[Rfam]
RNA sequence: ACUCUGCCACCGCUCAAGGUCCGUUCGCAUUUCAUCGUCUGGCAGGGGCGGGGGAACCAAUUUUGGCCUUCUGACCGAAGGCCUUGGGGUUAAGUCACGAAAGCUUCCCAGGAAGCCGUGUGGCCGGGUGACUCCCAUCCGAAUCCGACAGCUCACCUCGCAGGCAUUGGGAGAGGCUAC
Numbered sequence: 001a002c003u004c005u006g007c008c009a010c011c012g013c014u015c016a017a018g019g020u021c022c023g024u025u026c027g028c029a030u031u032u033c034a035u036c037g038u039c040u041g042g043c044a045g046g047g048g049c050g051g052g053g054g055a056a057c058c059a060a061u062u063u064u065g066g067c068c069u070u071c072u073g074a075c076c077g078a079a080g081g082c083c084u085u086g087g088g089g090u091u092a093a094g095u096c097a098c099g100a101a102a103g104c105u106u107c108c109c110a111g112g113a114a115g116c117c118g119u120g121u122g123g124c125c126g127g128g129u130g131a132c133u134c135c136c137a138u139c140c141g142a143a144u145c146c147g148a149c150a151g152c153u154c155a156c157c158u159c160g161c162a163g164g165c166a167u168u169g170g171g172a173g174a175g176g177c178u179a180c
Stems, first nucleotide, its partner, number of pairs: 002047008048161006058086002087146003095123004126140004
A member of the RNA family "c-di-AMP riboswitch aptamer (ydaO/yuaA leader)" from Pseudarthrobacter enclensis, 180 nucleotides long.